[Rfam]
RNA: Mammalian CPEB3 ribozyme
RNA sequence: AUUGCAGGUUUGAGGCAUCAACAGAAGCACUCACAGUGCAGCACUGACAGAUUCCAAUGAAUCUGUGAAUUGUGCU
Numbered sequence: 001a002u003u004g005c006a007g008g009u010u011u012g013a014g015g016c017a018u019c020a021a022c023a024g025a026a027g028c029a030c031u032c033a034c035a036g037u038g039c040a041g042c043a044c045u046g047a048c049a050g051a052u053u054c055c056a057a058u059g060a061a062u063c064u065g066u067g068a069a070u071u072g073u074g075c076u
Base pairs, nucleotide, nucleotide: 015042016041020076022074023073025071026070027039028038029037048065049064050063051062052061053060054059